RNA sequence: CAGCAGGAGUUAGUCCUGCCGGGGUAAAAGUCAGAAGCCUCGUAGCUUGGAUAGCAGGGUGGCGGGAAACCAAAAUUCUGAAGCCUAUCGACAAUCGCUCUGUAAGAGAGCGCGCGAGUCAUCGGGCCGUAAUGAAA
Numbered sequence: 001c002a003g004c005a006g007g008a009g010u011u012a013g014u015c016c017u018g019c020c021g022g023g024g025u026a027a028a029a030g031u032c033a034g035a036a037g038c039c040u041c042g043u044a045g046c047u048u049g050g051a052u053a054g055c056a057g058g059g060u061g062g063c064g065g066g067a068a069a070c071c072a073a074a075a076u077u078c079u080g081a082a083g084c085c086u087a088u089c090g091a092c093a094a095u096c097g098c099u100c101u102g103u104a105a106g107a108g109a110g111c112g113c114g115c116g117a118g119u120c121a122u123c124g125g126g127c128c129g130u131a132a133u134g135a136a137a
Stems, first nucleotide, its partner, number of pairs: 020042005050089005055080006064071002096112006114130003